Source information
A member of the RNA family "Streptomyces RNA 5676" from Streptomyces sp. AVP053U2, 126 nucleotides long.

RNA sequence: ACAAGAGAGACACCCGCUCACAGGUGACCGUGAGCGGUACAGGCCGAGGCCUCCCCGGCUUCGACCUGGUCGUGCCCUCGCGCACACAACCGGAGCUCCCGGGUUCCGGGUCUCCUCACGAUCGGA
Numbered sequence: 001a002c003a004a005g006a007g008a009g010a011c012a013c014c015c016g017c018u019c020a021c022a023g024g025u026g027a028c029c030g031u032g033a034g035c036g037g038u039a040c041a042g043g044c045c046g047a048g049g050c051c052u053c054c055c056c057g058g059c060u061u062c063g064a065c066c067u068g069g070u071c072g073u074g075c076c077c078u079c080g081c082g083c084a085c086a087c088a089a090c091c092g093g094a095g096c097u098c099c100c101g102g103g104u105u106c107c108g109g110g111u112c113u114c115c116u117c118a119c120g121a122u123c124g125g126a
Base pairs, nucleotide, nucleotide: 005117006116007115009114010113014037015036016035017034018033019032020031021030023028039070040068041067042066043065045063046062047061048060049059050058072085073084074083075082090109091108092107093106094105095104096103097102119124
From the family's description: Identified by deep sequencing of transcriptome at the end of exponential growth phase. Appears longer on northern blot than sequencing transcript. This indicates processing step. Streptomyces specific. The pairing is the family consensus, mapped onto this sequence.